[Rfam]
RNA: Plastid-psbN 5UTR RNA
RNA sequence: AAAAAUUCCCAUUAACACUGUAGUUCCCCAGCCAGGGGCUACCUUACCGUAUUCGGAAUUA
Numbered sequence: 001a002a003a004a005a006u007u008c009c010c011a012u013u014a015a016c017a018c019u020g021u022a023g024u025u026c027c028c029c030a031g032c033c034a035g036g037g038g039c040u041a042c043c044u045u046a047c048c049g050u051a052u053u054c055g056g057a058a059u060u061a
Base pairs, nucleotide, nucleotide: 017045020042021041022040023039024038025037026036027035
Dot-bracket structure: ................(..((((((((.......))))))))..)................